Rfam assigns this 134-nucleotide RNA from Clostridiales bacterium CHKCI001 to the family "FMN riboswitch aptamer (RFN element)". Rfam 15.1 lists 6,230 matches to the family in 5,120 species. Pairs were carried over by alignment from the consensus structure, which is taken from published work. Taxonomically the source falls in Eubacteriales (Bacteria, Bacillati, Bacillota, Clostridia). A search with the family's covariance model found it, with a score of 99 bits.
[Rfam]
RNA sequence: ACAAUUCUUCGGGGCAGGGUGUAAUUCCCUACCGACGGUAUAGUCCGUGACCCGCUUUGCGGUGGAUUUGGUGAAAUUCCAAAACCGACAGUGAACGCAGCAUAGCUGCAAAGUCUGGAUGAGAGAAGGAAUUG
Numbered sequence: 001a002c003a004a005u006u007c008u009u010c011g012g013g014g015c016a017g018g019g020u021g022u023a024a025u026u027c028c029c030u031a032c033c034g035a036c037g038g039u040a041u042a043g044u045c046c047g048u049g050a051c052c053c054g055c056u057u058u059g060c061g062g063u064g065g066a067u068u069u070g071g072u073g074a075a076a077u078u079c080c081a082a083a084a085c086c087g088a089c090a091g092u093g094a095a096c097g098c099a100g101c102a103u104a105g106c107u108g109c110a111a112a113g114u115c116u117g118g119a120u121g122a123g124a125g126a127a128g129g130a131a132u133u134g
Base pairs, nucleotide, nucleotide: 003132005130006129007128008127009126010125017029018028019027033087034086035048036047037046038045043085044084052062053061067083068082069081070080071079089117090116091115